[Rfam]
RNA sequence: UGAAAGUCCCAGACAACAGCCAUGAAACAGACCGUGUUUACACGGGAUGGCUCAUGGAUAUUGGACAGGCUAACCUAUAUGAACAAGGAGAGCGACCGCUCAGAUUGUGAAUAUAGGUGGCAAUUGCGGGAGCACUAAAGUGCGGAGCAAUGGACUUUCA
Numbered sequence: 001u002g003a004a005a006g007u008c009c010c011a012g013a014c015a016a017c018a019g020c021c022a023u024g025a026a027a028c029a030g031a032c033c034g035u036g037u038u039u040a041c042a043c044g045g046g047a048u049g050g051c052u053c054a055u056g057g058a059u060a061u062u063g064g065a066c067a068g069g070c071u072a073a074c075c076u077a078u079a080u081g082a083a084c085a086a087g088g089a090g091a092g093c094g095a096c097c098g099c100u101c102a103g104a105u106u107g108u109g110a111a112u113a114u115a116g117g118u119g120g121c122a123a124u125u126g127c128g129g130g131a132g133c134a135c136u137a138a139a140g141u142g143c144g145g146a147g148c149a150a151u152g153g154a155c156u157u158u159c160a
Stems, first nucleotide, its partner, number of pairs: 001160007009069002012066001015062002018059001020057006028049002032045005073118008083108004090101004121153001123151005132143004
RNA: Clostridiales-1 RNA
Organism: Clostridiales bacterium CHKCI001